Annotation: The record is a 151-nucleotide RNA from Fictibacillus macauensis, which matches "FMN riboswitch aptamer (RFN element)" in Rfam. Lineage of the source: Bacteria > Caryophanales > Fictibacillaceae > Fictibacillus > Fictibacillus macauensis. Pairs were carried over by alignment from the consensus structure, which is taken from published work. Rfam links the family to the GO term FMN binding. The RFN element is a highly conserved domain that is found frequently in the 5'-untranslated regions of prokaryotic mRNAs that encode for flavin mononucleotide (FMN) biosynthesis and transport proteins. This element is a metabolite-dependent riboswitch that directly binds FMN in the absence of proteins.
RNA sequence: AUCCAUCUUCGGGGCAGGGUGAAAUUCCCGACCGGCGGUAAUUGAAGAUUCCCUCUUCAUCAGCCCGUGAGCGCAAUCGUUGCUAAAACGAACGUGCUGAUCUGGUGUAACUCCAGAGCCGACAGUAUAGUCUGGAUGGGAGAAGAUGACG
Numbered sequence: 001a002u003c004c005a006u007c008u009u010c011g012g013g014g015c016a017g018g019g020u021g022a023a024a025u026u027c028c029c030g031a032c033c034g035g036c037g038g039u040a041a042u043u044g045a046a047g048a049u050u051c052c053c054u055c056u057u058c059a060u061c062a063g064c065c066c067g068u069g070a071g072c073g074c075a076a077u078c079g080u081u082g083c084u085a086a087a088a089c090g091a092a093c094g095u096g097c098u099g100a101u102c103u104g105g106u107g108u109a110a111c112u113c114c115a116g117a118g119c120c121g122a123c124a125g126u127a128u129a130g131u132c133u134g135g136a137u138g139g140g141a142g143a144a145g146a147u148g149a150c151g
Stems, first nucleotide, its partner, number of pairs: 004148007017029003031131002033121002035068004063119002071097003101117005123134003
Dot-bracket structure: ...(((((((......(((.......))).[[((((((........................[[))))..(((.....................)))...(((((.......)))))]])).(((....]]))).......)))))))...